RNA sequence: GGGGCUAAACUUAGUAACCCCAGCACAAAAGUGUUAAUAGUAAAGGCUUCUGGCCAAGUCUUACGGUUAGUGAAUC
Numbered sequence: 001g002g003g004g005c006u007a008a009a010c011u012u013a014g015u016a017a018c019c020c021c022a023g024c025a026c027a028a029a030a031g032u033g034u035u036a037a038u039a040g041u042a043a044a045g046g047c048u049u050c051u052g053g054c055c056a057a058g059u060c061u062u063a064c065g066g067u068u069a070g071u072g073a074a075u076c
Stems, first nucleotide, its partner, number of pairs: 001021004034070005040064003044061006

Shown here is a 76-nucleotide sequence, a member of the family "L13-Bacteroidia ribosomal protein leader". The base pairs follow the family's consensus structure, which is taken from published work. The family's RNA type in Rfam is cis-regulatory leader. A reference for the family is Eckert and Weinberg (2020), "Discovery of 20 novel ribosomal leader candidates in bacteria and archaea", BMC Microbiol.